[Rfam]
RNA sequence: GUUGAGGCUCCAGCUAUAAAUGGAUAAAAUUUGGGUCUUAAUGUAUACGAGUUUUUGAACGUAAAGGAGCAAUAAUUAAUUUCUUGUUAUAUCAAGAGGGUUGAUAUUGCUCCUUUA
Numbered sequence: 001g002u003u004g005a006g007g008c009u010c011c012a013g014c015u016a017u018a019a020a021u022g023g024a025u026a027a028a029a030u031u032u033g034g035g036u037c038u039u040a041a042u043g044u045a046u047a048c049g050a051g052u053u054u055u056u057g058a059a060c061g062u063a064a065a066g067g068a069g070c071a072a073u074a075a076u077u078a079a080u081u082u083c084u085u086g087u088u089a090u091a092u093c094a095a096g097a098g099g100g101u102u103g104a105u106a107u108u109g110c111u112c113c114u115u116u117a
Stems, first nucleotide, its partner, number of pairs: 009024004063116012078101001081098005
A member of the RNA family "Plastid-psbA-1 3UTR RNA" from Dichrostachys cinerea, 117 nucleotides long. About the family: Plastid psbA-1 is a non-coding RNA (ncRNA) present in plastids. It was identified in inverted repeat sequences in the 3 prime untranslate region (3UTR) of photosystem II quinone-binding protein (psbA). Clan: Plastid-psbA 3UTR RNA clan. Pairs were carried over by alignment from the consensus structure, which was predicted with LocARNA. For this family Rfam cites "Retrograde signaling in plants: A critical review focusing on the GUN pathway and beyond" (Richter et al., Plant Commun, 2023).